[Rfam]
RNA sequence: AAAAACUUAAUAACGUUAGCUCAUAUAUCCCUUGAAUAUGGCAAGGAGUAUCUACCGGAAACCAAUAAUUUCUGACUAUGAGUAAAAUUGCAUUGUAC
Numbered sequence: 001a002a003a004a005a006c007u008u009a010a011u012a013a014c015g016u017u018a019g020c021u022c023a024u025a026u027a028u029c030c031c032u033u034g035a036a037u038a039u040g041g042c043a044a045g046g047a048g049u050a051u052c053u054a055c056c057g058g059a060a061a062c063c064a065a066u067a068a069u070u071u072c073u074g075a076c077u078a079u080g081a082g083u084a085a086a087a088u089u090g091c092a093u094u095g096u097a098c
Base pairs, nucleotide, nucleotide: 019083020082021081022080023079024078025077030046031045032044033043034042056074057073058072059071060070061069
This 98-nucleotide RNA from Clostridium sp. BL8 belongs to the Rfam family "Purine riboswitch aptamer". NCBI's taxonomy places the organism under Bacteria, Bacillati, Bacillota, Clostridia, Clostridium.